Shown here is a 117-nucleotide RNA from Pseudooceanicola nanhaiensis, a member of the family "TPP riboswitch aptamer (THI element)". The match comes from Rfam's covariance-model search (68 bits). The base pairs follow the family's consensus structure, which is taken from published work.

RNA sequence: CCUCUCACCUAGGGGUGUCCCGACAAGGGGCUGAGAUAUCGCUGGCGAUUGCAGCGCGGUGACCCUUUGAACCUGAUCCGGAUCAUGCCGGCGAAGGGACAGGAUCGCAGCGCUCUC
Numbered sequence: 001c002c003u004c005u006c007a008c009c010u011a012g013g014g015g016u017g018u019c020c021c022g023a024c025a026a027g028g029g030g031c032u033g034a035g036a037u038a039u040c041g042c043u044g045g046c047g048a049u050u051g052c053a054g055c056g057c058g059g060u061g062a063c064c065c066u067u068u069g070a071a072c073c074u075g076a077u078c079c080g081g082a083u084c085a086u087g088c089c090g091g092c093g094a095a096g097g098g099a100c101a102g103g104a105u106c107g108c109a110g111c112g113c114u115c116u117c
Stems, first nucleotide, its partner, number of pairs: 008103003011066004017031005038060005072097003078091004
NCBI's taxonomy places the organism under Bacteria, Pseudomonadati, Rhodobacterales, Paracoccaceae, Pseudooceanicola. Rfam links the family to the GO term thiamine pyrophosphate binding.